A member of the RNA family "Mammalian CPEB3 ribozyme" from Crocodylus porosus, 77 nucleotides long. The match comes from Rfam's covariance-model search (51 bits). Taxonomically the source falls in Crocodylus (Eukaryota, Euteleostomi, Longirostres, Crocodylidae). The family's consensus secondary structure is taken from published work.
RNA sequence: GGUUGAAAGAUCAAGGCCAUAGCAGAAGUGCCUAUGGCACAGCCUUGUCAGAUUCCAGUGAAUCUGCAAAUCCUUUU
Numbered sequence: 001g002g003u004u005g006a007a008a009g010a011u012c013a014a015g016g017c018c019a020u021a022g023c024a025g026a027a028g029u030g031c032c033u034a035u036g037g038c039a040c041a042g043c044c045u046u047g048u049c050a051g052a053u054u055c056c057a058g059u060g061a062a063u064c065u066g067c068a069a070a071u072c073c074u075u076u077u
Base pairs, nucleotide, nucleotide: 014045015044016043017042021077022076024074025073027071028040029039030038049066050065051064052063053062054061055060